[Rfam]
RNA sequence: AGUGGUCCGCACGGGAGUCCGGAGGAACCGGACUGAGAGGGGGCUCACCGCCCCGACCGUCGAACCUGAUCCGGGUGAUGCCGGCGCAGGGAGCAGGGAAGUGUCGCAG
Numbered sequence: 001a002g003u004g005g006u007c008c009g010c011a012c013g014g015g016a017g018u019c020c021g022g023a024g025g026a027a028c029c030g031g032a033c034u035g036a037g038a039g040g041g042g043g044c045u046c047a048c049c050g051c052c053c054c055g056a057c058c059g060u061c062g063a064a065c066c067u068g069a070u071c072c073g074g075g076u077g078a079u080g081c082c083g084g085c086g087c088a089g090g091g092a093g094c095a096g097g098g099a100a101g102u103g104u105c106g107c108a109g
Stems, first nucleotide, its partner, number of pairs: 006097002009094002011060004017033005040054005065090004071084004

TPP riboswitch aptamer (THI element): a 109-nucleotide RNA from Allosaccharopolyspora coralli. Pairs were carried over by alignment from the consensus structure, which is taken from published work. NCBI's taxonomy places the organism under Bacteria, Actinomycetota, Pseudonocardiales, Pseudonocardiaceae, Allosaccharopolyspora. A search with the family's covariance model found it, with a score of 65 bits.